[Rfam]
The family of this 54-nucleotide sequence from Sinocyclocheilus rhinocerous is "Editing element of GABA-3 exon 9". Rfam classes the family as a cis-regulatory element. NCBI's taxonomy places the organism under Eukaryota, Actinopterygii, Teleostei, Cypriniphysae, Sinocyclocheilus. It scores 74 bits against the family's covariance model. Rfam 15.1 lists 4,208 matches to the family in 654 species.
Nucleotides: 054
Base pairs, nucleotide, nucleotide: 001054002053003052007050008049010047011046013045014044015042016041017040019038020037022035023034024033025032026031
Number, partner (000 for none) and nucleotide at each position: 001054a002053a003052a004000g005000u006000c007050g008049c009000c010047u011046a012000u013045g014044c015042c016041a017040c018000a019038g020037c021000c022035a023034u024033g025032g026031a027000c028000u029000g030000g031026u032025u033024c034023a035022u036000u037020g038019c039000a040017g041016u042015g043000u044014g045013u046011u047010a048000c049008g050007c051000c052003u053002u054001u